[Rfam]
RNA sequence: GCGGCGGGCCGGGCCCCUCUGGCUGAGAUCGACGCCGAUCGCAGCGAUGUCGGACGCAUCAC
Number, nucleotide and partner (000 for none) at each position: 001g000002c000003g000004g000005c000006g000007g055008g000009c053010c052011g051012g050013g000014c000015c000016c000017c000018u000019c000020u000021g000022g045023c044024u043025g042026a000027g040028a039029u038030c037031g036032a000033c000034g000035c000036c031037g030038a029039u028040c027041g000042c025043a024044g023045c022046g000047a000048u000049g000050u012051c011052g010053g009054a000055c007056g000057c000058a000059u000060c000061a000062c000
RNA: terC RNA
Organism: Phenylobacterium deserti